Gammaprotebacteria rimP leader: a 131-nucleotide RNA from Vibrio paucivorans. The source organism's lineage runs through Bacteria, Pseudomonadati, Pseudomonadota, Gammaproteobacteria and Vibrio.
RNA sequence: UUGGGUGUUUAACAUAUAAGGGUCCAGCAACAAAAAACCCCGACUAUCGGGGUUUUUUGUUAUCUGAAUUUUUCAUUUGAAAGGUUUAGGUGUUUGCUUGGAAUUUAAAUUGGGCUCUAUGCCCUUUUUUU
Dot-bracket structure: .................................(((((((((.....))))))))).......................................................((((.....)))).......